[Rfam]
RNA sequence: CCCGCAGGACGACCUGCCGGUGCGCACUUUUUCGUUCGGGGACGGCCCCA
Numbered sequence: 001c002c003c004g005c006a007g008g009a010c011g012a013c014c015u016g017c018c019g020g021u022g023c024g025c026a027c028u029u030u031u032u033c034g035u036u037c038g039g040g041g042a043c044g045g046c047c048c049c050a
Stems, first nucleotide, its partner, number of pairs: 001020002004017005038049004
Guanidine-II riboswitch aptamer (mini-ykkC): a 50-nucleotide RNA sequence from Pseudomonas sp. M47T1. Taxonomically the source falls in Pseudomonas (Bacteria, Pseudomonadati, Gammaproteobacteria, Pseudomonadales). Simpler in structure and has fewer highly conserved nucleotide positions than the ykkC-yxkD leader. Despite this each of its two stem-loop structures directly bind free guanidine.